[Rfam]
RNA sequence: AUAAAAGCAGGGUGUUGUUUUGUUUUACUGAACAGUGCUCUCGUAAACUUUAGGGAAAAUAAUUCGAUGUUAUUGGGUGAACCAUUUGGACCACAAUGCCAUCUGGUUCAGUAAACAACGAGACAUUU
Numbered sequence: 001a002u003a004a005a006a007g008c009a010g011g012g013u014g015u016u017g018u019u020u021u022g023u024u025u026u027a028c029u030g031a032a033c034a035g036u037g038c039u040c041u042c043g044u045a046a047a048c049u050u051u052a053g054g055g056a057a058a059a060u061a062a063u064u065c066g067a068u069g070u071u072a073u074u075g076g077g078u079g080a081a082c083c084a085u086u087u088g089g090a091c092c093a094c095a096a097u098g099c100c101a102u103c104u105g106g107u108u109c110a111g112u113a114a115a116c117a118a119c120g121a122g123a124c125a126u127u128u
Stems, first nucleotide, its partner, number of pairs: 005050003011039002014036006063122004068117004078110007
This 128-nucleotide RNA from Carex littledalei belongs to the Rfam family "Small nucleolar RNA snoR74". For this family Rfam cites "Experimental RNomics: identification of 140 candidates for small non-messenger RNAs in the plant Arabidopsis thaliana" (Marker et al., Curr Biol, 2002).